Shown here is a 402-nucleotide part of an RNA from uncultured marine crenarchaeote AD1000-23-H12, a member of the family "Archaeal large subunit ribosomal RNA".
It is one of the family's seed sequences.
The family's consensus secondary structure is taken from published work.

RNA sequence: GGUAGUAACAGCGUAGCUGGGUGAGAAUCCCAGCCAUCGAAAGAGCAAGGGUUUCCUGGCAACGCGUCGUCGACCAGGAGUAAGACGAUCCUAAGUGUAGUCCCAAAGGAGCUACACGAAUUGGAAAACCGGUUAAUAUUCCGGUUCCUUUAAUCUUUUGUGUGCGUAAGCACAGAUCUAUUUUGGUUUGCUUUCGGAUAGGGUGAGCAGAGUUUUCGCUCUGUUUAACCUCUCAAGCCUGCGGGAGUGUCUUAAUGACGAGAACUCAGGCGAGAAGGGAAUAGCUUGCUUUUAGCGAGUUCAUCUGAUUCCAAGGGACCAUGAAACCCAAACUAGUGAAAUAGUUUAAAGUUCGUACCGAGAUCCAACACAGGUGCUCUAAGUGAGAAGCUUAAGAUGUAU
Numbered sequence: 001g002g003u004a005g006u007a008a009c010a011g012c013g014u015a016g017c018u019g020g021g022u023g024a025g026a027a028u029c030c031c032a033g034c035c036a037u038c039g040a041a042a043g044a045g046c047a048a049g050g051g052u053u054u055c056c057u058g059g060c061a062a063c064g065c066g067u068c069g070u071c072g073a074c075c076a077g078g079a080g081u082a083a084g085a086c087g088a089u090c091c092u093a094a095g096u097g098u099a100g101u102c103c104c105a106a107a108g109g110a111g112c113u114a115c116a117c118g119a120a121u122u123g124g125a126a127a128a129c130c131g132g133u134u135a136a137u138a139u140u141c142c143g144g145u146u147c148c149u150u151u152a153a154u155c156u157u158u159u160g161u162g163u164g165c166g167u168a169a170g171c172a173c174a175g176a177u178c179u180a181u182u183u184u185g186g187u188u189u190g191c192u193u194u195c196g197g198a199u200a201g202g203g204u205g206a207g208c209a210g211a212g213u214u215u216u217c218g219c220u221c222u223g224u225u226u227a228a229c230c231u232c233u234c235a236a237g238c239c240u241g242c243g244g245g246a247g248u249g250u251c252u253u254a255a256u257g258a259c260g261a262g263a264a265c266u267c268a269g270g271c272g273a274g275a276a277g278g279g280a281a282u283a284g285c286u287u288g289c290u291u292u293u294a295g296c297g298a299g300u301u302c303a304u305c306u307g308a309u310u311c312c313a314a315g316g317g318a319c320c321a322u323g324a325a326a327c328c329c330a331a332a333c334u335a336g337u338g339a340a341a342u343a344g345u346u347u348a349a350a351g352u353u354c355g356u357a358c359c360g361a362g363a364u365c366c367a368a369c370a371c372a373g374g375u376g377c378u379c380u381a382a383g384u385g386a387g388a389a390g391c392u393u394a395a396g397a398u399g400u401a402u
Base pairs, nucleotide, nucleotide: 016034017033018032019031020030021029035399036398037397038396043379044378045377046376049359050358054079055078056077057076058075059074063072064071086355087354088353090124091123095117096116097115098114099113100112101110102109103108128145129144130143131142132141148351149350150349151348152347153346155344184330185329186328191317192316193315194314196312197311198310201306202305203304204303205302206225207224208223209222210221211220229278230277231276233275239269240268241267243265249259250258251257290294365374366373380394381393382392383391
Gene Ontology terms of the family: structural constituent of ribosome and ribosome.